[Rfam]
RNA sequence: AAAAUUCCUCGUUAGCAUGAGGCGUUUGCACAAACACAGGCUGCUGCCCAGAAAUGUCGAAAGACGCCAAUGGGUAGACAAGGUAUGGUCGGCAUAAGGCUUUACCCGAGGUAGCUGGUUCUUCGAAAACCUACGUUGUGCACUGCCGAAAGUCUACGAGUGGGGAAAUGA
Numbered sequence: 001a002a003a004a005u006u007c008c009u010c011g012u013u014a015g016c017a018u019g020a021g022g023c024g025u026u027u028g029c030a031c032a033a034a035c036a037c038a039g040g041c042u043g044c045u046g047c048c049c050a051g052a053a054a055u056g057u058c059g060a061a062a063g064a065c066g067c068c069a070a071u072g073g074g075u076a077g078a079c080a081a082g083g084u085a086u087g088g089u090c091g092g093c094a095u096a097a098g099g100c101u102u103u104a105c106c107c108g109a110g111g112u113a114g115c116u117g118g119u120u121c122u123u124c125g126a127a128a129a130c131c132u133a134c135g136u137u138g139u140g141c142a143c144u145g146c147c148g149a150a151a152g153u154c155u156a157c158g159a160g161u162g163g164g165g166a167a168a169u170g171a
Stems, first nucleotide, its partner, number of pairs: 005167006011157002013097001015153002021147003027142007040115005046075005055066004082106004088100003117131003
Overview
The record is a 171-nucleotide RNA from Syntrophobacter fumaroxidans, which matches "M-box riboswitch aptamer (ykoK leader)" in Rfam. The family has 159 seed sequences and 1,095 matches in Rfam 15.1. M-box riboswitch, also know as ykoK leader is described as a metaloregulatory RNA that sense divalent metals and function as a genetic control element of genes related to divalent metal transport in bacteria. It was first reported upstream of the B.subtilis ykoK gene and genes with related functions in other bacteria.